[Rfam]
RNA: Betaproteobacteria-1 RNA
RNA sequence: GUUCUGAUUGGGGAUUCACCACCACCAGCGGUCAGGAUAGAAGCGUUACUGGGGGAUAAGGAAUGUAAUAGCGCAUAUGCCGGUGGCGAAGUUAGUGCCGGUUUCCUGAACGACUGACGGGU
Number, nucleotide and partner (000 for none) at each position: 001g038002u037003u036004c035005u034006g033007a032008u031009u030010g029011g000012g000013g000014a000015u000016u000017c000018a000019c000020c000021a000022c000023c000024a000025c052026c051027a050028g049029c010030g009031g008032u007033c006034a005035g004036g003037a002038u001039a000040g000041a000042a000043g074044c073045g072046u071047u070048a069049c028050u027051g026052g025053g000054g000055g000056a000057u000058a000059a000060g106061g105062a104063a103064u000065g000066u000067a000068a000069u048070a047071g046072c045073g044074c043075a000076u000077a000078u000079g102080c101081c100082g099083g098084u097085g000086g000087c000088g000089a000090a000091g118092u117093u116094a115095g114096u113097g084098c083099c082100g081101g080102u079103u063104u062105c061106c060107u000108g000109a000110a000111c000112g000113a096114c095115u094116g093117a092118c091119g000120g000121g000122u000